[Rfam]
Source information:
This 57-nucleotide RNA from Capsicum baccatum belongs to the Rfam family "Plastid-ndhJ 3UTR RNA".

RNA sequence: UCAUGAACUUUAUACUUCGCACAUUACUUAGACGGGUUGUAGAAGGGCAUAUAAGAA
Numbered sequence: 001u002c003a004u005g006a007a008c009u010u011u012a013u014a015c016u017u018c019g020c021a022c023a024u025u026a027c028u029u030a031g032a033c034g035g036g037u038u039g040u041a042g043a044a045g046g047g048c049a050u051a052u053a054a055g056a057a
Base pairs, nucleotide, nucleotide: 019037020036022034024032025031

Lineage of the source: Eukaryota > Embryophyta > Spermatophyta > eudicotyledons > Capsicum. The family's consensus secondary structure was predicted with LocARNA. Rfam describes the family as follows. Plastid ndhJ is a non-coding RNA (ncRNA) present in plastids. It was identified as a short stem-loop motif in the 3 prime untranslate region (3UTR) of ndhJ gene.